[Rfam]
This 77-nucleotide RNA sequence from Esox lucius belongs to the Rfam family "Small nucleolar RNA SNORD99". The base pairs follow the family's consensus structure, which was predicted with RNAalifold. A reference for the family is Galardi et al. (2002), "Purified box C/D snoRNPs are able to reproduce site-specific 2'-O-methylation of target RNA in vitro", Mol Cell Biol. It scores 64 bits against the family's covariance model. The organism belongs to Esox, within Eukaryota. By type it is a C/D-box small nucleolar RNA. Its family is annotated with nucleolus and RNA processing in the Gene Ontology.

RNA sequence: UCUGAUCAAUGAUUGAUAACAAAACUUGAAAUUGUGACUGUUGGAUGAAACAUGCGGAUAUGGGACUGAGAUCAGGA
Dot-bracket structure: (((((..................................................................))))).